[Rfam]
RNA sequence: GCAAAUGUUAUCUAGGGUUCCGCGAUACUAUGUCGGUCAGGUCCGAGAGAUAACUCACAACUCAAGAGUUGUGCCACGGAGGGAUAAAAGCCUGGGAGAU
Numbered sequence: 001g002c003a004a005a006u007g008u009u010a011u012c013u014a015g016g017g018u019u020c021c022g023c024g025a026u027a028c029u030a031u032g033u034c035g036g037u038c039a040g041g042u043c044c045g046a047g048a049g050a051u052a053a054c055u056c057a058c059a060a061c062u063c064a065a066g067a068g069u070u071g072u073g074c075c076a077c078g079g080a081g082g083g084a085u086a087a088a089a090g091c092c093u094g095g096g097a098g099a100u
Base pairs, nucleotide, nucleotide: 007054008053009052010051011050012049015044016043020041021040022038023035024034025033026032027031056073057072058071059070060069061068062067075095077098081093082092083091